[Rfam]
RNA sequence: UGCCGACCCCGCCGGGACGAGCGACGGAGUCCUCGGACGUCGGUAAGUUUCGACAAUCAAGACCUCCAUCGCACCGCCUGACACUUCAGUGCACGCGGCCCAAACACGGGAGAGAACGCUGAGCGUAACAAC
Numbered sequence: 001u002g003c004c005g006a007c008c009c010c011g012c013c014g015g016g017a018c019g020a021g022c023g024a025c026g027g028a029g030u031c032c033u034c035g036g037a038c039g040u041c042g043g044u045a046a047g048u049u050u051c052g053a054c055a056a057u058c059a060a061g062a063c064c065u066c067c068a069u070c071g072c073a074c075c076g077c078c079u080g081a082c083a084c085u086u087c088a089g090u091g092c093a094c095g096c097g098g099c100c101c102a103a104a105c106a107c108g109g110g111a112g113a114g115a116a117c118g119c120u121g122a123g124c125g126u127a128a129c130a131a132c
Stems, first nucleotide, its partner, number of pairs: 001045007009036003074098004079093002082091003
RNA: atpB RNA
Organism: Corynebacterium heidelbergense